[Rfam]
RNA: mir-150 microRNA precursor family
Organism: Scyliorhinus torazame
RNA sequence: ACCCAGUCCUCUCUCUCCCAACCCUUGUACCAGUGCUAGAAUUGUAAAUCACUGGGACAAGGGCUGGAUGAGAGAGAGCCGGGA
Numbered sequence: 001a002c003c004c005a006g007u008c009c010u011c012u013c014u015c016u017c018c019c020a021a022c023c024c025u026u027g028u029a030c031c032a033g034u035g036c037u038a039g040a041a042u043u044g045u046a047a048a049u050c051a052c053u054g055g056g057a058c059a060a061g062g063g064c065u066g067g068a069u070g071a072g073a074g075a076g077a078g079c080c081g082g083g084a
Stems, first nucleotide, its partner, number of pairs: 010075003014071002016068003022061001026059003030055003